[Rfam]
RNA sequence: AGGGAAAGAAGACCCUAUUAAGCUUAACUCUAGUUUAAUAUUGUAAAAAGACAUAGAGGGUAUAGAAUAGGUAGGAGCUUUAGCGCUAGUAAAAUACUACUACUCUUAUCGUUUUUUUACUUAUUUAAUAAAGCAGAGCUAGGCCUUACUGCCUAACUUCUAGCGUUAAGGUUCUUCGUAGGCUAAUCUAGGUUAAAGACAUUGUUAGGUAAAGAGUUUAGCUAGGGCGGCACAUCUAUUAAACCAUAACGCAGGUGUUCUAAGAAAGACUUAUAGAGAACAGAAAUCUCUAGUAGAGCAAAAGAGCAAAAGUCCUCUUAAUUUUGAUUUUUAGUAUAAAUAUAAACUAUAAAAGUAUAGCCUAUUAAUUCUUUAGUCUCUUAAAAUUUAAGGCUAGAGGUGCUAAAAAAGUUACUACAGGGAUAACUAGCUUGUAGCAGCCAAGCGUUUAUAGCAACGUUACUUUUUGAUUCUUUAAUGUUAGCUCUUUCUAUUAUACUAAAGCAGAAUUUAGUAAGCGUUAGAUUGUUUACCUACUAAUAGGGAACGUAAGCUAGGUUUAGACUGUCGUAAGACAGGUUAGUUUUACUCU
Numbered sequence: 001a002g003g004g005a006a007a008g009a010a011g012a013c014c015c016u017a018u019u020a021a022g023c024u025u026a027a028c029u030c031u032a033g034u035u036u037a038a039u040a041u042u043g044u045a046a047a048a049a050g051a052c053a054u055a056g057a058g059g060g061u062a063u064a065g066a067a068u069a070g071g072u073a074g075g076a077g078c079u080u081u082a083g084c085g086c087u088a089g090u091a092a093a094a095u096a097c098u099a100c101u102a103c104u105c106u107u108a109u110c111g112u113u114u115u116u117u118u119a120c121u122u123a124u125u126u127a128a129u130a131a132a133g134c135a136g137a138g139c140u141a142g143g144c145c146u147u148a149c150u151g152c153c154u155a156a157c158u159u160c161u162a163g164c165g166u167u168a169a170g171g172u173u174c175u176u177c178g179u180a181g182g183c184u185a186a187u188c189u190a191g192g193u194u195a196a197a198g199a200c201a202u203u204g205u206u207a208g209g210u211a212a213a214g215a216g217u218u219u220a221g222c223u224a225g226g227g228c229g230g231c232a233c234a235u236c237u238a239u240u241a242a243a244c245c246a247u248a249a250c251g252c253a254g255g256u257g258u259u260c261u262a263a264g265a266a267a268g269a270c271u272u273a274u275a276g277a278g279a280a281c282a283g284a285a286a287u288c289u290c291u292a293g294u295a296g297a298g299c300a301a302a303a304g305a306g307c308a309a310a311a312g313u314c315c316u317c318u319u320a321a322u323u324u325u326g327a328u329u330u331u332u333a334g335u336a337u338a339a340a341u342a343u344a345a346a347c348u349a350u351a352a353a354a355g356u357a358u359a360g361c362c363u364a365u366u367a368a369u370u371c372u373u374u375a376g377u378c379u380c381u382u383a384a385a386a387u388u389u390a391a392g393g394c395u396a397g398a399g400g401u402g403c404u405a406a407a408a409a410a411g412u413u414a415c416u417a418c419a420g421g422g423a424u425a426a427c428u429a430g431c432u433u434g435u436a437g438c439a440g441c442c443a444a445g446c447g448u449u450u451a452u453a454g455c456a457a458c459g460u461u462a463c464u465u466u467u468u469g470a471u472u473c474u475u476u477a478a479u480g481u482u483a484g485c486u487c488u489u490u491c492u493a494u495u496a497u498a499c500u501a502a503a504g505c506a507g508a509a510u511u512u513a514g515u516a517a518g519c520g521u522u523a524g525a526u527u528g529u530u531u532a533c534c535u536a537c538u539a540a541u542a543g544g545g546a547a548c549g550u551a552a553g554c555u556a557g558g559u560u561u562a563g564a565c566u567g568u569c570g571u572a573a574g575a576c577a578g579g580u581u582a583g584u585u586u587u588a589c590u591c592u
Base pairs, nucleotide, nucleotide: 002592003591004590006587007586014421015420016419019417020416021413022412023411024410025409027217028216029215030214034209035208036207037206038205039204040203043120044119045118046117047116048115049114050113051112052111056107057106058105059104060103070101071100072099073098074097077084078083124197125196126195127194128193129192221231222230223229234256235255236254237253239251259360266316268314269313270312271297272296274292275291276290277289278288279287298307299306322346323345324344327341328340329339330338348357350355371399372398373397374396375395379393380392381391382390430471432469434468436464437463439461440460441459445455446454482557483555484554485553486552487549488546489545490544491543492542495520499514500513501512502511503510522536523535524534526532563581564580565579566578567576568575569574
Overview: Shown here is a 592-nucleotide part of an RNA from Paraphoma chrysanthemicola, a member of the family "Archaeal large subunit ribosomal RNA". NCBI's taxonomy places the organism under Eukaryota, Fungi, Dikarya, leotiomyceta, Paraphoma.